[Rfam]
RNA sequence: AAGGAAGGUAUUGUGUAUACUGGCUUUGUGCUUCCUAAUGCGUUAAUGCCAAAAGUGUUUUCUGCAACAUCGAUUCGUGGGGGGAAUUGGCGAUCGGGUCUCUGUUUAUUAUUUUCAUCAGAUCAUUUACAAUCAGUUUCCCUACAUUC
Numbered sequence: 001a002a003g004g005a006a007g008g009u010a011u012u013g014u015g016u017a018u019a020c021u022g023g024c025u026u027u028g029u030g031c032u033u034c035c036u037a038a039u040g041c042g043u044u045a046a047u048g049c050c051a052a053a054a055g056u057g058u059u060u061u062c063u064g065c066a067a068c069a070u071c072g073a074u075u076c077g078u079g080g081g082g083g084g085a086a087u088u089g090g091c092g093a094u095c096g097g098g099u100c101u102c103u104g105u106u107u108a109u110u111a112u113u114u115u116c117a118u119c120a121g122a123u124c125a126u127u128u129a130c131a132a133u134c135a136g137u138u139u140c141c142c143u144a145c146a147u148u149c
Stems, first nucleotide, its partner, number of pairs: 004065001006063003010059001015043002018040002080143011094129001096127001
A member of the RNA family "small nucleolar RNA snoR135" from Amborella trichopoda, 149 nucleotides long. Lineage of the source: Eukaryota > Embryophyta > Euphyllophyta > Magnoliopsida > Amborella. The match comes from Rfam's covariance-model search (48 bits). Rfam links the family to the GO terms nucleolus and RNA processing. The family's RNA type in Rfam is H/ACA-box small nucleolar RNA. A reference for the family is Chen and Wu (2009), "Mining small RNA sequencing data: a new approach to identify small nucleolar RNAs in Arabidopsis", Nucleic Acids Res.